[Rfam]
RNA sequence: CAGAUGAUGACGGGGAGCUUGCGUAGGAAGCAGGCUGAGAGUAAGCUGGAGGCUUUGACCCGAGACCUGAUUUGGGUAAUGCCAACGUAGGGAAGGAAGAGAAAUUGUUU
Number, nucleotide and partner (000 for none) at each position: 001c000002a000003g000004a000005u000006g000007a000008u096009g000010a000011c062012g061013g060014g059015g000016a056017g035018c034019u033020u032021g031022c000023g000024u000025a000026g000027g000028a000029a000030g000031c021032a020033g019034g018035c017036u000037g000038a000039g000040a000041g000042u000043a055044a054045g053046c052047u000048g000049g000050a000051g000052g046053c045054u044055u043056u016057g000058a000059c014060c013061c012062g011063a000064g000065a000066c091067c090068u089069g088070a000071u000072u085073u084074g083075g082076g000077u000078a000079a000080u000081g000082c075083c074084a073085a072086c000087g000088u069089a068090g067091g066092g000093a000094a000095g000096g008097a000098a000099g000100a000101g000102a000103a000104a000105u000106u000107g000108u000109u000110u000
Rfam assigns this 110-nucleotide RNA from Sellimonas intestinalis to the family "TPP riboswitch aptamer (THI element)". The organism belongs to Sellimonas, within Bacteria. Vitamin B(1) in its active form thiamin pyrophosphate (TPP) is an essential coenzyme that is synthesised by coupling of pyrimidine and thiazole moieties in bacteria. Gene Ontology term of the family: thiamine pyrophosphate binding. The base pairs follow the family's consensus structure, which is taken from published work.